[Rfam]
Nucleotides: 118
Base pairs, nucleotide, nucleotide: 001020002019003018004017007036008035009034010033011032012031037101038100039099040098041096042095043094044093045092046091047090048089051070052069053068054067055066056065073085074084075083076082104118105117106116107115108114
Number, partner (000 for none) and nucleotide at each position: 001020c002019g003018g004017c005000a006000a007036u008035g009034c010033c011032u012031c013000c014000u015000u016000g017004g018003c019002c020001g021000a022000u023000a024000u025000c026000u027000a028000u029000g030000a031012g032011a033010g034009g035008c036007a037101c038100u039099c040098g041096a042095u043094c044093a045092u046091g047090c048089u049000g050000u051070g052069g053068g054067a055066g056065u057000g058000a059000a060000c061000g062000u063000a064000a065056g066055c067054u068053c069052c070051u071000u072000a073085g074084a075083c076082g077000c078000c079000u080000g081000u082076c083075g084074u085073c086000a087000a088000g089048a090047g091046u092045g093044u094043g095042g096041u097000g098040u099039g100038a101037g102000g103000u104118g105117g106116g107115g108114u109000u110000u111000a112000a113000u114108g115107c116106c117105c118104u

Shown here is a 118-nucleotide RNA from Aureibacillus halotolerans, a member of the family "epsC RNA".